About this RNA
This 104-nucleotide RNA sequence from Paenibacillus sp. IHBB 10380 belongs to the Rfam family "TPP riboswitch aptamer (THI element)". Vitamin B(1) in its active form thiamin pyrophosphate (TPP) is an essential coenzyme that is synthesised by coupling of pyrimidine and thiazole moieties in bacteria.

RNA sequence: UUUUUUCACUAGGGGAGUCUAACGACUGAGACGAGCUUUUAAGCUUCGGACCCUUGGAACCUGAUCUGGAUUAUACCAGCGGAGGGAAGUGGAACGAAAUCUUC
Dot-bracket structure: .....(((((((((..(((....)))......(((((....))).))...)))).....(((...((((......))))...)))..)))))............
The source organism's lineage runs through Bacteria, Bacillota, Caryophanales, Paenibacillaceae and Paenibacillus. It scores 72 bits against the family's covariance model.